[Rfam]
RNA sequence: GCCCCACAUCAAGAGAGUGGCUGACGCCAACGCCAACCUGCCCGCCCGGCAAGGUGGUACCCGCAAGAUUGCGGGAUGCGGUUCCGGUACUACCGGAGCAAUUAAGGGGUGCGAU
Numbered sequence: 001g002c003c004c005c006a007c008a009u010c011a012a013g014a015g016a017g018u019g020g021c022u023g024a025c026g027c028c029a030a031c032g033c034c035a036a037c038c039u040g041c042c043c044g045c046c047c048g049g050c051a052a053g054g055u056g057g058u059a060c061c062c063g064c065a066a067g068a069u070u071g072c073g074g075g076a077u078g079c080g081g082u083u084c085c086g087g088u089a090c091u092a093c094c095g096g097a098g099c100a101a102u103u104a105a106g107g108g109g110u111g112c113g114a115u
Stems, first nucleotide, its partner, number of pairs: 007078004015031001018029004032058003037054003040050003046109002081099008

Rfam assigns this 115-nucleotide RNA from Simiduia agarivorans to the family "SAM-I/IV (S-adenosyl methionine) riboswitch aptamer". NCBI's taxonomy places the organism under Bacteria, Gammaproteobacteria, Cellvibrionales, Cellvibrionaceae, Simiduia agarivorans. Its family is annotated with regulation of gene expression and S-adenosylmethionine metabolic process in the Gene Ontology. For this family Rfam cites "Structural basis for diversity in the SAM clan of riboswitches" (Trausch et al., PNAS, 2014).